[Rfam]
RNA sequence: CAGCUGCAGCUGCAGCUGCAGCUGCAGCUGCAGCUGCAGCUGCAGCUGCAGCUGCAGCUGCAGCUGCAGCUGCAGCUGCAGCUGCAGCUGCAGCUGCAGCUGCAGCUGCAGCUGCAGCUGCAGCUGCAGCUGCAGCUGCAGCUGCAGCUGCAGCUGCAGCUGCAGCUGCAGCUGCAGCUGCAGCUGCAGCUGCAGCUGCAGCUGCAGCUGCAGCUGCAGCUGCAGCUGCAGCUGCAGCUGCAGCUGCAGCUGCACUAUUUU
Numbered sequence: 001c002a003g004c005u006g007c008a009g010c011u012g013c014a015g016c017u018g019c020a021g022c023u024g025c026a027g028c029u030g031c032a033g034c035u036g037c038a039g040c041u042g043c044a045g046c047u048g049c050a051g052c053u054g055c056a057g058c059u060g061c062a063g064c065u066g067c068a069g070c071u072g073c074a075g076c077u078g079c080a081g082c083u084g085c086a087g088c089u090g091c092a093g094c095u096g097c098a099g100c101u102g103c104a105g106c107u108g109c110a111g112c113u114g115c116a117g118c119u120g121c122a123g124c125u126g127c128a129g130c131u132g133c134a135g136c137u138g139c140a141g142c143u144g145c146a147g148c149u150g151c152a153g154c155u156g157c158a159g160c161u162g163c164a165g166c167u168g169c170a171g172c173u174g175c176a177g178c179u180g181c182a183g184c185u186g187c188a189g190c191u192g193c194a195g196c197u198g199c200a201g202c203u204g205c206a207g208c209u210g211c212a213g214c215u216g217c218a219g220c221u222g223c224a225g226c227u228g229c230a231g232c233u234g235c236a237g238c239u240g241c242a243g244c245u246g247c248a249g250c251u252g253c254a255c256u257a258u259u260u261u
Base pairs, nucleotide, nucleotide: 001252002251003250004249006247007246008245011242012241013240014239015238016237017236018235021220022219023218024217025216026215027214028213031210032209033208034207035206036205037204048061049060050059051058052057062101063100064099065098066097070093071092072091074089075088076087077086078085102199103198105196106195107194108193109192110191111190112189114187115186116185117184118183119182121180122179123178124177126175127174128173129172130171132139133138144169145168150163151162152161153160154159225232226231
The record is a 261-nucleotide RNA from Astyanax mexicanus, which matches "isrG Hfq binding RNA" in Rfam. By type it is a small RNA. The base pairs follow the family's consensus structure, which was predicted with RNAalifold.